[Rfam]
RNA sequence: AAGUCCGUGAUGAGAGUACUAUCUCAACAUAUCUUUGUACCUUUCCCAAGCUUCAUAUAAUGACUCUCCAUCUUGACGGAUGAAAGUAGUAAUAUCAUUAUGCAUCU
Numbered sequence: 001a002a003g004u005c006c007g008u009g010a011u012g013a014g015a016g017u018a019c020u021a022u023c024u025c026a027a028c029a030u031a032u033c034u035u036u037g038u039a040c041c042u043u044u045c046c047c048a049a050g051c052u053u054c055a056u057a058u059a060a061u062g063a064c065u066c067u068c069c070a071u072c073u074u075g076a077c078g079g080a081u082g083a084a085a086g087u088a089g090u091a092a093u094a095u096c097a098u099u100a101u102g103c104a105u106c107u
Base pairs, nucleotide, nucleotide: 001107003105004104005102058075059074
RNA: Plant small nucleolar RNA R71